The family of this 86-nucleotide RNA sequence from Cnephaeus nilssonii is "mir-135 microRNA precursor family". Taxonomically the source falls in Cnephaeus (Eukaryota, Bilateria, Theria, Laurasiatheria). A reference for the family is Lagos-Quintana et al. (2002), "Identification of tissue-specific microRNAs from mouse", Curr Biol.
[Rfam]
RNA sequence: AUGUGGUACAUAGAGAUGGCUUUCAACCUUAAGUGAGUUAACUUUCUAACUCACUUAAGGUUGAAAGCCAUCUCUAUGUACCACAU
Number, nucleotide and partner (000 for none) at each position: 001a000002u085003g084004u083005g082006g081007u080008a079009c078010a077011u076012a075013g074014a073015g072016a071017u070018g069019g068020c067021u066022u065023u064024c000025a062026a061027c060028c059029u058030u057031a056032a055033g054034u053035g052036a051037g000038u000039u000040a000041a000042c000043u000044u000045u000046c000047u000048a000049a000050c000051u036052c035053a034054c033055u032056u031057a030058a029059g028060g027061u026062u025063g000064a023065a022066a021067g020068c019069c018070a017071u016072c015073u014074c013075u012076a011077u010078g009079u008080a007081c006082c005083a004084c003085a002086u000